A member of the RNA family "Exoribonuclease-resistant RNA (xrRNA) plant-infecting virus (class 3)" from Polerovirus PABYV, 50 nucleotides long. The literature on the family includes a 2024 paper in bioRxiv [Preprint] by Gezelle et al., "The pseudoknot structure of a viral RNA reveals a conserved mechanism for programmed exoribonuclease resistance". Its family is annotated with viral RNA genome replication in the Gene Ontology. The organism belongs to Polerovirus PABYV, within Viruses. From the family's description: Exoribonuclease-resistant RNA (xrRNA) plant-infecting virus (class 3) is a ncRNA that was reported in Plant viruses. The sequence is in the family's curated seed alignment.
[Rfam]
RNA sequence: GAGCCAGCCGAGUUAGACUUGUUGCAAACGUCGGAGGCUAAAGUCAAGCA
Numbered sequence: 001g002a003g004c005c006a007g008c009c010g011a012g013u014u015a016g017a018c019u020u021g022u023u024g025c026a027a028a029c030g031u032c033g034g035a036g037g038c039u040a041a042a043g044u045c046a047a048g049c050a
Base pairs, nucleotide, nucleotide: 001039004036008034009033012029013028018048019047020046021045